This 116-nucleotide sequence from Edwardsiella hoshinae belongs to the Rfam family "TPP riboswitch aptamer (THI element)".
[Rfam]
RNA sequence: ACCAUCUUGUCGGAGUGCCUAGCUGAUACCGAGUAUCACAGGCUGAGACCGUUGAUUCGGGAUCCGCGGAACCUGAUUGGGUUAAGACCCACGAAGGGAACAAGAGUAAUCGGCAC
Numbered sequence: 001a002c003c004a005u006c007u008u009g010u011c012g013g014a015g016u017g018c019c020u021a022g023c024u025g026a027u028a029c030c031g032a033g034u035a036u037c038a039c040a041g042g043c044u045g046a047g048a049c050c051g052u053u054g055a056u057u058c059g060g061g062a063u064c065c066g067c068g069g070a071a072c073c074u075g076a077u078u079g080g081g082u083u084a085a086g087a088c089c090c091a092c093g094a095a096g097g098g099a100a101c102a103a104g105a106g107u108a109a110u111c112g113g114c115a116c
Base pairs, nucleotide, nucleotide: 006104007103008102009101010100011066012065013064014063016060017043018042019041020040050059051058072097073096074095078091079090080089081088

Vitamin B(1) in its active form thiamin pyrophosphate (TPP) is an essential coenzyme that is synthesised by coupling of pyrimidine and thiazole moieties in bacteria. The match comes from Rfam's covariance-model search (66 bits). The organism belongs to Edwardsiella, within Bacteria.